[Rfam]
Annotation
The record is a 47-nucleotide RNA sequence from Enterobacteriaceae bacterium strain FGI 57, which matches "Guanidine-II riboswitch aptamer (mini-ykkC)" in Rfam. The family's consensus secondary structure is taken from published work. Rfam links the family to the GO term regulation of gene expression. Rfam's curators write: Simpler in structure and has fewer highly conserved nucleotide positions than the ykkC-yxkD leader. Despite this each of its two stem-loop structures directly bind free guanidine. Therefore, mini-ykkC RNA motif represents a distinct class of guanidine-sensing RNAs. Its crystal structure was also determined. Lineage of the source: Bacteria > Pseudomonadati > Pseudomonadota > Gammaproteobacteria > Enterobacteriaceae.
RNA sequence: CCCUGAGGACGACCUCAGGGGAAUGACUUUAUCGCGGGACGACCCGC
Numbered sequence: 001c002c003c004u005g006a007g008g009a010c011g012a013c014c015u016c017a018g019g020g021g022a023a024u025g026a027c028u029u030u031a032u033c034g035c036g037g038g039a040c041g042a043c044c045c046g047c
Stems, first nucleotide, its partner, number of pairs: 001020008034047005